[Rfam]
RNA: Archaeal small subunit ribosomal RNA, nucleotides 1 to 522
Organism: Promethearchaeum syntrophicum
Nucleotides: 522
Base pairs, nucleotide, nucleotide: 004020005019006018007017008016022512023511024510025509026508027507028506029505030504031503033401034400035399036398037397038396039395040394041393042359048357049356050355052354053353054352057083058082059081062080063079064078065077066076067075068074090312091311092310099236100235101234102233104231105230106229109228110227114224115223116222117221118220119219120218122156123155124154125153131146132145133144134143135142136141162186163185164184165183166182167181170179171178193216194215237284238283239282245275246274247273250272251271252270253269254268255267256266257265287309288308289307290306291302292301293300294299314335315334316333317332318331337348338347339346340345365391367390368389369388373386374385375384376383377382404422405421406420407419408418409417410416411415426452427448428447429446430445431444433443434442455501456500457499458498459497460496468495469494470493471492477484478483
Number, partner (000 for none) and nucleotide at each position: 001000a002000c003000u004020c005019u006018g007017g008016u009000u010000g011000a012000u013000c014000c015000u016008g017007c018006c019005a020004g021000a022512u023511c024510c025509g026508a027507c028506u029505g030504c031503u032000a033401u034400c035399c036398g037397g038396g039395u040394a041393a042359g043000a044000c045000u046000u047000a048357g049356c050355c051000a052354u053353g054352c055000a056000a057083g058082u059081c060000g061000a062080a063079u064078g065077g066076a067075a068074c069000a070000g071000c072000u073000u074068g075067u076066u077065c078064c079063a080062u081059g082058g083057c084000g085000a086000a087000c088000u089000g090312c091311u092310c093000a094000g095000u096000a097000a098000c099236a100235a101234g102233u103000a104231a105230u106229c107000a108000a109228c110227u111000u112000a113000c114224c115223c116222u117221u118220c119219a120218g121000u122156g123155g124154a125153g126000a127000a128000u129000a130000a131146c132145c133144u134143c135142g136141g137000g138000a139000a140000a141136c142135u143134g144133a145132g146131g147000c148000u149000a150000a151000u152000a153125c154124u155123u156122c157000a158000u159000a160000g161000u162186u163185g164184g165183a166182a167181a168000u169000u170179c171178c172000u173000g174000g175000a176000a177000u178171g179170g180000u181167u182166u183165u184164c185163c186162a187000u188000c189000g190000a191000a192000a193216g194215a195000u196000a197000u198000u199000u200000c201000u202000a203000a204000a205000u206000g207000c208000g209000g210000a211000a212000a213000a214000u215194u216193c217000g218120c219119u220118g221117a222116a223115g224114g225000a226000u227110a228109g229106g230105a231104u232000c233102g234101c235100u236099u237284u238283c239282g240000a241000u242000u243000a244000c245275g246274g247273u248000u249000g250272u251271u252270g253269g254268u255267g256266a257265g258000g259000u260000a261000a262000u263000g264000g265257c266256u267255c268254a269253c270252c271251a272250a273247g274246c275245c276000u277000a278000u279000g280000a281000u282239c283238g284237a285000u286000a287309a288308g289307g290306g291302c292301c293300g294299u295000g296000a297000g298000a299294g300293c301292g302291g303000u304000a305000g306290c307289c308288c309287u310092g311091a312090g313000a314335u315334g316333g317332a318331u319000a320000c321000u322000g323000a324000g325000a326000c327000a328000a329000u330000g331318a332317u333316c334315c335314a336000g337348g338347c339346c340345u341000u342000a343000c344000g345340a346339g347338g348337c349000g350000c351000a352054g353053c354052a355050g356049g357048c358000g359042c360000g361000a362000a363000a364000c365391c366000u367390u368389u369388a370000c371000a372000a373386u374385g375384c376383a377382c378000g379000c380000a381000a382377g383376u384375g385374u386373g387000a388369u389368a390367a391365g392000g393041u394040u395039a396038c397037c398036c399035g400034g401033a402000g403000u404422g405421c406420c407419a408418a409417a410416a411415u412000u413000a414000a415411a416410u417409u418408u419407u420406g421405g422404c423000u424000g425000u426452u427448a428447u429446a430445g431444g432000u433443g434442u435000g436000u437000a438000a439000a440000u441000a442434a443433c444431c445430c446429u447428a448427u449000g450000a451000g452426a453000a454000a455501g456500g457499a458498g459497a460496g461000g462000g463000c464000a465000a466000g467000g468495c469494u470493g471492g472000u473000g474000c475000c476000a477484g478483c479000c480000g481000c482000c483478g484477c485000g486000g487000u488000a489000a490000a491000a492471c493470c494469a495468g496460c497459u498458c499457u500456u501455c502000a503031a504030g505029u506028g507027g508026u509025c510024g511023g512022g513000a514000a515000u516000a517000u518000u519000a520000u521000u522000g